The family of this 68-nucleotide sequence from Oceanobacillus zhaokaii is "Bacillaceae-1 RNA". Taxonomically the source falls in Oceanobacillus (Bacteria, Bacillota, Caryophanales, Bacillaceae). Rfam classes the family as a small RNA. The family has 95 seed sequences and 5,721 matches in Rfam 15.1.
[Rfam]
RNA sequence: GGAUAAGGAUUUUCUGUUAAGAACCGUCACGUCCUGUGACGAACACAGAAGUCACCACAUCCUGUGAA
Dot-bracket structure: ..........(((((((........(((((.....)))))....)))))))....(((.....)))..